[Rfam]
RNA: L4-Archaeoglobi ribosomal protein leades
Organism: Halogeometricum pallidum
RNA sequence: CUGAAGGUCGCGUUCGGGUCAAUUGCGGACUGCAACACCCGGUCUCCCUCUACGCUCCGUCCGGUACGGAGUUGGAGGAGGGAGAGCGCGUCGCCAUCAG
Numbered sequence: 001c002u003g004a005a006g007g008u009c010g011c012g013u014u015c016g017g018g019u020c021a022a023u024u025g026c027g028g029a030c031u032g033c034a035a036c037a038c039c040c041g042g043u044c045u046c047c048c049u050c051u052a053c054g055c056u057c058c059g060u061c062c063g064g065u066a067c068g069g070a071g072u073u074g075g076a077g078g079a080g081g082g083a084g085a086g087c088g089c090g091u092c093g094c095c096a097u098c099a100g
Stems, first nucleotide, its partner, number of pairs: 001100004009090005015041004023035005043085009